The record is a 103-nucleotide RNA sequence from Manduca sexta, which matches "mir-277 microRNA precursor family" in Rfam. Lineage of the source: Eukaryota > Eumetazoa > Hexapoda > Amphiesmenoptera > Manduca.
RNA sequence: CUCCGGAGUUCGUGCCAGGAGUGCGUUUGCAAAACACGCGACGAGUUUGCGUUAUUGCAAAGUCGACACUGUAAAUGCACUAUCUGGUACGACACCCCGGAGC
Numbered sequence: 001c002u003c004c005g006g007a008g009u010u011c012g013u014g015c016c017a018g019g020a021g022u023g024c025g026u027u028u029g030c031a032a033a034a035c036a037c038g039c040g041a042c043g044a045g046u047u048u049g050c051g052u053u054a055u056u057g058c059a060a061a062g063u064c065g066a067c068a069c070u071g072u073a074a075a076u077g078c079a080c081u082a083u084c085u086g087g088u089a090c091g092a093c094a095c096c097c098c099g100g101a102g103c
Stems, first nucleotide, its partner, number of pairs: 004099003011091009021080001023078006036072003
Dot-bracket structure: ...(((....(((((((((.(.((((((.......(((...............................))))))))).)..))))))))).....)))....
Rfam 15.1 lists 170 matches to the family in 166 species. Rfam's curators put it in the seed alignment. A reference for the family is Liu et al. (2010), "MicroRNAs of Bombyx mori identified by Solexa sequencing", BMC Genomics.